[Rfam]
RNA sequence: ACAAUGGUACUCAUUCGCAGUCACAGUCCGAGCGUGAUAAAACCGUCGCAGGCAAUGAGCGGAUCUCCGGCAGACCGUCGGAGGGGUGGAACUCCCGUGG
Numbered sequence: 001a002c003a004a005u006g007g008u009a010c011u012c013a014u015u016c017g018c019a020g021u022c023a024c025a026g027u028c029c030g031a032g033c034g035u036g037a038u039a040a041a042a043c044c045g046u047c048g049c050a051g052g053c054a055a056u057g058a059g060c061g062g063a064u065c066u067c068c069g070g071c072a073g074a075c076c077g078u079c080g081g082a083g084g085g086g087u088g089g090a091a092c093u094c095c096c097g098u099g100g
Stems, first nucleotide, its partner, number of pairs: 012097001013064006065083003069079003084096003